[Rfam]
RNA sequence: AGUAAGGAUAGAGGAGCAAAGACCAUCAGUACGCAAUUUGAGGAUAAUGAGAUCCUAUGACAAUUGUGGAAAGGGGAAUUUGCCGAAGCUUUUGAGAGCCUCAUUAUCUCGAAGCUGGUUCUGUUAUUGAACAAAUGCAGGACUGUCAUAUAGGUUUCUAUAUGGAGGGCUAUCUUACGC
Numbered sequence: 001a002g003u004a005a006g007g008a009u010a011g012a013g014g015a016g017c018a019a020a021g022a023c024c025a026u027c028a029g030u031a032c033g034c035a036a037u038u039u040g041a042g043g044a045u046a047a048u049g050a051g052a053u054c055c056u057a058u059g060a061c062a063a064u065u066g067u068g069g070a071a072a073g074g075g076g077a078a079u080u081u082g083c084c085g086a087a088g089c090u091u092u093u094g095a096g097a098g099c100c101u102c103a104u105u106a107u108c109u110c111g112a113a114g115c116u117g118g119u120u121c122u123g124u125u126a127u128u129g130a131a132c133a134a135a136u137g138c139a140g141g142a143c144u145g146u147c148a149u150a151u152a153g154g155u156u157u158c159u160a161u162a163u164g165g166a167g168g169g170c171u172a173u174c175u176u177a178c179g180c
Stems, first nucleotide, its partner, number of pairs: 006175006016083005023076002032068007087116005093111005117144007125137004146165007

This 180-nucleotide sequence from Lysinibacillus halotolerans belongs to the Rfam family "Lysine riboswitch aptamer". Pairs were carried over by alignment from the consensus structure, which is taken from published work. The organism belongs to Lysinibacillus, within Bacteria.